[Rfam]
RNA sequence: AUUUAAAGUCUCAAUAUAGAACACUCAUAUCGAUAAAAUGAUUUGAACUACUU
Numbered sequence: 001a002u003u004u005a006a007a008g009u010c011u012c013a014a015u016a017u018a019g020a021a022c023a024c025u026c027a028u029a030u031c032g033a034u035a036a037a038a039u040g041a042u043u044u045g046a047a048c049u050a051c052u053u
Base pairs, nucleotide, nucleotide: 011033012032014030015029016028017027
Shown here is a 53-nucleotide RNA from Helianthus annuus, a member of the family "Plastid-atpF group II-D1 intron". NCBI's taxonomy places the organism under Eukaryota, Streptophyta, asterids, Heliantheae alliance, Helianthus. About the family: Plastid atpF is a non-coding RNA (ncRNA) recognised in plastids. It has been reported in the intron group II-D1 region of ATP synthase (atpF) genes. Its family is annotated with Group II intron splicing in the Gene Ontology. It scores 55 bits against the family's covariance model.